[Rfam]
RNA: mir-301 microRNA precursor family
RNA sequence: CACUGACAGGUGCUCUGACUUCAUUGCACUACUGUGCAUCCAAACUAGCAGUGCAAUAGUAUUGUCAAAGCACCUGCGAGCGGA
Numbered sequence: 001c002a003c004u005g006a007c008a009g010g011u012g013c014u015c016u017g018a019c020u021u022c023a024u025u026g027c028a029c030u031a032c033u034g035u036g037c038a039u040c041c042a043a044a045c046u047a048g049c050a051g052u053g054c055a056a057u058a059g060u061a062u063u064g065u066c067a068a069a070g071c072a073c074c075u076g077c078g079a080g081c082g083g084a
Stems, first nucleotide, its partner, number of pairs: 003080002007076008016067004023057008
Dot-bracket structure: ..((..((((((((.((((...((((((((...................))))))))......)))).))))))))..))....